A member of the RNA family "Plastid-clpP 5UTR RNA" from Capsicum annuum, 69 nucleotides long.
A search with the family's covariance model found it, with a score of 76 bits.
The family has 343 seed sequences and 2,105 matches in Rfam 15.1.
The source organism's lineage runs through Eukaryota, Streptophytina, Mesangiospermae, asterids and Capsicum.
The literature on the family includes a 2023 paper in Plant Commun by Richter et al., "Retrograde signaling in plants: A critical review focusing on the GUN pathway and beyond".
Plastid clpP is a non-coding RNA (ncRNA) recognised in plastids. It was found in the prime untranslated region (5UTR) of a protease complex subunit (clpP) in plastids, suggesting a posible cis-regulatory function.
RNA sequence: AAUUCUGUUCGUAGGAAUAAAGAGAAGCAGAUUUUUUCUAUAAUCGAUAAGUACUAAUAAGAAAUGGGG
Numbered sequence: 001a002a003u004u005c006u007g008u009u010c011g012u013a014g015g016a017a018u019a020a021a022g023a024g025a026a027g028c029a030g031a032u033u034u035u036u037u038c039u040a041u042a043a044u045c046g047a048u049a050a051g052u053a054c055u056a057a058u059a060a061g062a063a064a065u066g067g068g069g
Base pairs, nucleotide, nucleotide: 003022004021006019007018008017009016010015044067045066052059053058